[Rfam]
Rfam assigns this 83-nucleotide RNA sequence from Alicyclobacillaceae bacterium I2511 to the family "c-di-GMP-I riboswitch aptamer". It scores 72 bits against the family's covariance model. The base pairs follow the family's consensus structure, which is taken from published work.

RNA sequence: AUUAAAAACGAGCAAACCUUGAGAAAUCGAGGGACGCAAAGCCAUGGGCCUACGGUGAAUGCUAAGGCUGCCAGGUUGCUGAU
Numbered sequence: 001a002u003u004a005a006a007a008a009c010g011a012g013c014a015a016a017c018c019u020u021g022a023g024a025a026a027u028c029g030a031g032g033g034a035c036g037c038a039a040a041g042c043c044a045u046g047g048g049c050c051u052a053c054g055g056u057g058a059a060u061g062c063u064a065a066g067g068c069u070g071c072c073a074g075g076u077u078g079c080u081g082a083u
Stems, first nucleotide, its partner, number of pairs: 012037002017032006040077004045073003048068003055062002
Background:
NCBI's taxonomy places the organism under Bacteria, Bacillati, Bacillota, Bacilli, Alicyclobacillaceae.